RNA sequence: GUGGUGGAAAGAUGACGUAAGGAGCGACUCACGGACACGUGUUGUCCAUAUCUGUCUCCUGGGAAGGUCUGAGAUAAGGUCUACCUACUUGGGUAGGUUACCCUCUAGCAGGGGGAUGGUGUAAUACGCCAUGGUGUUGUACUAGAAACGAUUCAUCGACAUACUCGCCCUGAAGUACAAGAAGGCUACUCUUCACGUAAUACGUUAUGUGCAGAAGUCUGAUACGAUUGUGGUGAAGAUGUCGAAUUUAAACUACAGCACUGGCCAGCUGUGCUUAGUGAGAUCGUUGACUGUUUAACUCAAUUCAGACUACUCUUCCGCCAC
Dot-bracket structure: ((((..(((...[.[....(((((........(((((.....)))))........)))))........(((((....((((...................(((((.....)))))((((((.....)))))).(((((((...........(((.........................................................................................)))........))))))).)))).....................].].............))))).......)))..))))
Numbered sequence: 001g002u003g004g005u006g007g008a009a010a011g012a013u014g015a016c017g018u019a020a021g022g023a024g025c026g027a028c029u030c031a032c033g034g035a036c037a038c039g040u041g042u043u044g045u046c047c048a049u050a051u052c053u054g055u056c057u058c059c060u061g062g063g064a065a066g067g068u069c070u071g072a073g074a075u076a077a078g079g080u081c082u083a084c085c086u087a088c089u090u091g092g093g094u095a096g097g098u099u100a101c102c103c104u105c106u107a108g109c110a111g112g113g114g115g116a117u118g119g120u121g122u123a124a125u126a127c128g129c130c131a132u133g134g135u136g137u138u139g140u141a142c143u144a145g146a147a148a149c150g151a152u153u154c155a156u157c158g159a160c161a162u163a164c165u166c167g168c169c170c171u172g173a174a175g176u177a178c179a180a181g182a183a184g185g186c187u188a189c190u191c192u193u194c195a196c197g198u199a200a201u202a203c204g205u206u207a208u209g210u211g212c213a214g215a216a217g218u219c220u221g222a223u224a225c226g227a228u229u230g231u232g233g234u235g236a237a238g239a240u241g242u243c244g245a246a247u248u249u250a251a252a253c254u255a256c257a258g259c260a261c262u263g264g265c266c267a268g269c270u271g272u273g274c275u276u277a278g279u280g281a282g283a284u285c286g287u288u289g290a291c292u293g294u295u296u297a298a299c300u301c302a303a304u305u306c307a308g309a310c311u312a313c314u315c316u317u318c319c320g321c322c323a324c
Stems, first nucleotide, its partner, number of pairs: 001324004007318003013290001015288001020060005033047005069308005078266004101115005116132006134261007152246003